[Rfam]
Shown here is a 129-nucleotide sequence from Myotis brandtii, a member of the family "Small nucleolar RNA SNORA31".
It scores 89 bits against the family's covariance model.
Rfam classes the family as an H/ACA-box small nucleolar RNA.
About the family: ACA31 (SNORA31) belongs to the H/ACA class of snoRNAs which are thought to guide the sites of modification of uridines to pseudouridines. ACA31 is predicted to guide the pseudouridylation of U3713 in 28S rRNA and U218 in 18S rRNA. This family includes the mouse homologue snoMBI-161.
On this family, see Huttenhofer et al., EMBO J 2001: "RNomics: an experimental approach that identifies 201 candidates for novel, small, non-messenger RNAs in mouse".
Lineage of the source: Eukaryota > Euteleostomi > Mammalia > Yangochiroptera > Myotis.

RNA sequence: CCACAUCCACUGACAGGCCUUGAACGAUCUGAUGUUGUUCUUUUGGUUUGCACUAGGAUGUGGGGGGAAAAAAUCACUGUACUUUCUAUCUAUCUGUGUUGUGGCCCAAUUGAAUAAGGGAUUAUAUCU
Numbered sequence: 001c002c003a004c005a006u007c008c009a010c011u012g013a014c015a016g017g018c019c020u021u022g023a024a025c026g027a028u029c030u031g032a033u034g035u036u037g038u039u040c041u042u043u044u045g046g047u048u049u050g051c052a053c054u055a056g057g058a059u060g061u062g063g064g065g066g067g068a069a070a071a072a073a074u075c076a077c078u079g080u081a082c083u084u085u086c087u088a089u090c091u092a093u094c095u096g097u098g099u100u101g102u103g104g105c106c107c108a109a110u111u112g113a114a115u116a117a118g119g120g121a122u123u124a125u126a127u128c129u
Base pairs, nucleotide, nucleotide: 002062003061004060005059006058007057008056011052012051014050015049016048017047018046019045022040023039024038025037026036027035028034074121075120077118078117082112085109087108090104091103092102093101